[Rfam]
Record summary: Rfam assigns this 178-nucleotide sequence from Serratia ficaria to the family "STAXI RNA". Rfam 15.1 lists 130 matches to the family in 68 species. Rfam classes the family as a small RNA.
RNA sequence: UGUCGUCUUCGGACGACCACCAAUGCUCAAUGGGUCUGCGAUGAGCGCCUUCGGGUGACCCUGCUGUCGAUAGACAUCCACCAAUGAUCUGGCCAUCUGCGAGGAUCGCCUUCGGGUGAUGGCAAAAGAAAGCUUCCGUAGCCUGAGAGGGAGCACGCCAGGUAUGGUGUGGUACAUC
Numbered sequence: 001u002g003u004c005g006u007c008u009u010c011g012g013a014c015g016a017c018c019a020c021c022a023a024u025g026c027u028c029a030a031u032g033g034g035u036c037u038g039c040g041a042u043g044a045g046c047g048c049c050u051u052c053g054g055g056u057g058a059c060c061c062u063g064c065u066g067u068c069g070a071u072a073g074a075c076a077u078c079c080a081c082c083a084a085u086g087a088u089c090u091g092g093c094c095a096u097c098u099g100c101g102a103g104g105a106u107c108g109c110c111u112u113c114g115g116g117u118g119a120u121g122g123c124a125a126a127a128g129a130a131a132g133c134u135u136c137c138g139u140a141g142c143c144u145g146a147g148a149g150g151g152a153g154c155a156c157g158c159c160a161g162g163u164a165u166g167g168u169g170u171g172g173u174a175c176a177u178c
Base pairs, nucleotide, nucleotide: 002017003016004015005014006013007012025046026045027044028043029042032061033060034059035058036057047056048055049054086107087106088105089104090103092123093122094121095120096119097118108117109116110115134151135150136149138175139174140173142172143171155170156169157168158167159166160165